Rfam assigns this 121-nucleotide sequence from Erwinia tracheiphila to the family "Enterobacteria greA leader".
Rfam links the family to the GO term regulation of gene expression.
By type it is a cis-regulatory leader.
Pairs were carried over by alignment from the consensus structure, which is taken from published work.
[Rfam]
RNA sequence: GCCAUACUACGGUGCUUCAAGGUGCAAAGUAAACGAUGAUCCACCAUGAACUCUGCGGUAAAAUACGUAUCAAAAUGCAAAAUCUCCAGGCCCUGAGUUAUAUCUUGGGGUCGUAACUUUU
Number, nucleotide and partner (000 for none) at each position: 001g040002c000003c038004a037005u036006a000007c000008u000009a000010c035011g034012g000013u000014g030015c029016u000017u000018c000019a000020a000021g000022g000023u000024g000025c000026a000027a000028a000029g015030u014031a000032a000033a000034c011035g010036a005037u004038g003039a000040u001041c048042c000043a000044c000045c000046a000047u000048g041049a000050a000051c000052u000053c000054u000055g000056c000057g071058g070059u069060a068061a000062a000063a000064u000065a000066c000067g000068u060069a059070u058071c057072a000073a000074a000075a000076u000077g000078c000079a000080a000081a000082a000083u000084c000085u000086c000087c000088a114089g112090g111091c110092c109093c108094u107095g106096a105097g104098u000099u000100a000101u000102a000103u000104c097105u096106u095107g094108g093109g092110g091111u090112c089113g000114u088115a000116a000117c000118u000119u000120u000121u000